[Rfam]
RNA sequence: AAACCAAUUAUAGCGCCUGUACUGAAGAACUCGGACGGACCAGUCAGUCUUCAGUAGACGAGGAGGAGGAGUAUCGAGAUUUCGGCGGAUACCUCCCGGCCGCGAAGCCCGGUCGUUAUGUGCAUGCUUAAAACAGUCGAGUGAUCGAUUGGACAACCAGCUUGCACGGGCUCACAA
Numbered sequence: 001a002a003a004c005c006a007a008u009u010a011u012a013g014c015g016c017c018u019g020u021a022c023u024g025a026a027g028a029a030c031u032c033g034g035a036c037g038g039a040c041c042a043g044u045c046a047g048u049c050u051u052c053a054g055u056a057g058a059c060g061a062g063g064a065g066g067a068g069g070a071g072u073a074u075c076g077a078g079a080u081u082u083c084g085g086c087g088g089a090u091a092c093c094u095c096c097c098g099g100c101c102g103c104g105a106a107g108c109c110c111g112g113u114c115g116u117u118a119u120g121u122g123c124a125u126g127c128u129u130a131a132a133a134c135a136g137u138c139g140a141g142u143g144a145u146c147g148a149u150u151g152g153a154c155a156a157c158c159a160g161c162u163u164g165c166a167c168g169g170g171c172u173c174a175c176a177a
Base pairs, nucleotide, nucleotide: 020056021055022054023053024052025051026050027049065096066095067094068093069092074085075084076083077082097115098114099113100112101111102110120167121166122165123164124163126161134151135150136149137148138147139146140145
A member of the RNA family "glmS glucosamine-6-phosphate activated ribozyme aptamer" from Planococcus rifietoensis, 177 nucleotides long. Rfam classes the family as a riboswitch. NCBI's taxonomy places the organism under Bacteria, Bacillati, Bacillota, Caryophanaceae, Planococcus.